[Rfam]
RNA sequence: GCUGUGGAGCGUCAUACAAACCAAAGUAGUUCCGACGAAAUGGGACGCUACGAAGCAGUAA
Numbered sequence: 001g002c003u004g005u006g007g008a009g010c011g012u013c014a015u016a017c018a019a020a021c022c023a024a025a026g027u028a029g030u031u032c033c034g035a036c037g038a039a040a041u042g043g044g045a046c047g048c049u050a051c052g053a054a055g056c057a058g059u060a061a
Stems, first nucleotide, its partner, number of pairs: 001059005009048005021043003029036002
Dot-bracket structure: (((((...(((((.......(((.....((....))....))))))))......)))))..
A member of the RNA family "RAGATH-18 RNA", 61 nucleotides long. The sequence is in the family's curated seed alignment. Rfam describes the family as follows. Actinobacteria, Firmicutes, Fusobacteria, Thermotogae (1 example). The base pairs follow the family's consensus structure, which is taken from published work.